[Rfam]
RNA sequence: ACUGUGCCUGACGUAAGUCGCUCUGGAUAAGAGCGUCUGCUAAAUGCCAAUAA
Numbered sequence: 001a002c003u004g005u006g007c008c009u010g011a012c013g014u015a016a017g018u019c020g021c022u023c024u025g026g027a028u029a030a031g032a033g034c035g036u037c038u039g040c041u042a043a044a045u046g047c048c049a050a051u052a053a
Stems, first nucleotide, its partner, number of pairs: 013040003019035006
RNA: UnaL2 LINE 3' element
Organism: Megalops atlanticus